[Rfam]
Nucleotides: 075
Stems, first nucleotide, its partner, number of pairs: 001018004006014003025053006
Number, partner (000 for none) and nucleotide at each position: 001018g002017g003016c004015c005000a006014c007013c008012u009000u010000c011000g012008g013007g014006g015004g016003g017002c018001u019000c020000a021000c022000a023000c024000c025053g026052c027051g028050g029049a030048u031000c032000a033000c034000g035000c036000c037000a038000g039000u040000a041000g042000g043000g044000c045000a046000g047000g048030g049029u050028u051027c052026g053025c054000u055000u056000a057000g058000c059000u060000a061000a062000a063000c064000g065000g066000a067000a068000g069000a070000c071000a072000g073000a074000a075000a